[Rfam]
RNA sequence: CAUAGCGGGAGAGGCGCAACAUUCAGGUAACUUAUCUUAGGAAACUAGGCCGUUUGAGGAUAAGCCAUGGGAAUGAUUGCCGAGGUGUGGAUUCACUAGAUAGGAAUUUAACAUCGGCUGAGUAGGUUGAAUCUUGCCAGCUGUCGUUUGAAACAGUGGUUUAAAAAACAGUGGUUUUAGAAACAAUAGUUUUAAAUGGAGUGCUCUGAAAUAA
Number, nucleotide and partner (000 for none) at each position: 001c000002a000003u000004a000005g000006c000007g000008g207009g206010a205011g204012a000013g000014g000015c000016g080017c079018a078019a077020c000021a074022u073023u072024c071025a000026g000027g000028u000029a000030a000031c064032u063033u062034a061035u060036c059037u058038u000039a000040g000041g000042a000043a000044a000045c000046u000047a000048g000049g000050c000051c000052g000053u000054u000055u000056g000057a000058g037059g036060a035061u034062a033063a032064g031065c000066c000067a000068u000069g000070g000071g024072a023073a022074u021075g000076a000077u019078u018079g017080c016081c000082g000083a000084g115085g114086u113087g112088u110089g109090g108091a107092u106093u105094c104095a000096c000097u000098a000099g000100a000101u000102a000103g000104g094105a093106a092107u091108u090109u089110a088111a000112c087113a086114u085115c084116g142117g141118c140119u139120g000121a000122g137123u136124a135125g134126g133127u000128u000129g000130a000131a000132u000133c126134u125135u124136g123137c122138c000139a119140g118141c117142u116143g000144u199145c198146g197147u196148u195149u194150g193151a192152a191153a190154c189155a000156g000157u000158g000159g000160u000161u000162u000163a000164a000165a000166a000167a000168a000169c000170a000171g000172u000173g000174g000175u000176u000177u000178u000179a000180g000181a000182a000183a000184c000185a000186a000187u000188a000189g154190u153191u152192u151193u150194a149195a148196a147197u146198g145199g144200a000201g000202u000203g000204c011205u010206c009207u008208g000209a000210a000211a000212u000213a000214a000
RNA: Lysine riboswitch aptamer
Organism: Otariodibacter oris